RNA sequence: GGAAACCCACCAAGGGAAGAGCUAACCCACCGCCUUGUACCGAGUCCUUGGAGUCGAAGUGGUAAAAUAAGCUUUAAGCGUAGGACAGGGAGCAACAGAGCCGAAACGUAAGUGACGUGAUUUAGCUGGGAAAUUAUUAUGAGAACGGAAAAGGCUGAGACGUUAAUACUUGUCGUAGGCAAUAUCGGGUAAAAUGUUAUGGUGAGAGUUACCUGGCAUCCUCCAGUCUGAGAACU
Numbered sequence: 001g002g003a004a005a006c007c008c009a010c011c012a013a014g015g016g017a018a019g020a021g022c023u024a025a026c027c028c029a030c031c032g033c034c035u036u037g038u039a040c041c042g043a044g045u046c047c048u049u050g051g052a053g054u055c056g057a058a059g060u061g062g063u064a065a066a067a068u069a070a071g072c073u074u075u076a077a078g079c080g081u082a083g084g085a086c087a088g089g090g091a092g093c094a095a096c097a098g099a100g101c102c103g104a105a106a107c108g109u110a111a112g113u114g115a116c117g118u119g120a121u122u123u124a125g126c127u128g129g130g131a132a133a134u135u136a137u138u139a140u141g142a143g144a145a146c147g148g149a150a151a152a153g154g155c156u157g158a159g160a161c162g163u164u165a166a167u168a169c170u171u172g173u174c175g176u177a178g179g180c181a182a183u184a185u186c187g188g189g190u191a192a193a194a195u196g197u198u199a200u201g202g203u204g205a206g207a208g209u210u211a212c213c214u215g216g217c218a219u220c221c222u223c224c225a226g227u228c229u230g231a232g233a234a235c236u
Stems, first nucleotide, its partner, number of pairs: 012036004019031001023205001025203002038091001040089002044086001046084003049080002051075003055071001058068001060067001122230001125227006147221003153217001154180003159174004185216008195206001
Rfam assigns this 236-nucleotide RNA from Clostridium sp. chh4-2 to the family "Group II catalytic intron D1-D4-6".
The base pairs follow the family's consensus structure.
The organism belongs to Clostridium, within Bacteria.